RNA sequence: AAAGUUUCGUAUGCCACCGCGAUGGAUUGGUUCAUUGCUGUGUGCUUUGCCUUC
Numbered sequence: 001a002a003a004g005u006u007u008c009g010u011a012u013g014c015c016a017c018c019g020c021g022a023u024g025g026a027u028u029g030g031u032u033c034a035u036u037g038c039u040g041u042g043u044g045c046u047u048u049g050c051c052u053u054c
Base pairs, nucleotide, nucleotide: 002053003052008049011046013045014044015042016041017040019038020037022035023034024033025032026031
Rfam assigns this 54-nucleotide RNA sequence from Poecilia formosa to the family "Editing element of GABA-3 exon 9". The family has 52 seed sequences and 4,208 matches in Rfam 15.1. A search with the family's covariance model found it, with a score of 63 bits. Rfam classes the family as a cis-regulatory element.